[Rfam]
RNA: dinG RNA
RNA sequence: AAUGAUACUCCUGCCCGGCCUGCGUCACUGCAUAGGGGGUAGCCCUCUCCGAGAGAUGAGGGGGAAAAGUAGGGUUUCGGUUGAGACAGACCGAGACAGGCUUUU
Numbered sequence: 001a002a003u004g005a006u007a008c009u010c011c012u013g014c015c016c017g018g019c020c021u022g023c024g025u026c027a028c029u030g031c032a033u034a035g036g037g038g039g040u041a042g043c044c045c046u047c048u049c050c051g052a053g054a055g056a057u058g059a060g061g062g063g064g065a066a067a068a069g070u071a072g073g074g075u076u077u078c079g080g081u082u083g084a085g086a087c088a089g090a091c092c093g094a095g096a097c098a099g100g101c102u103u104u105u
Stems, first nucleotide, its partner, number of pairs: 011042005043064006065105006074097001077094005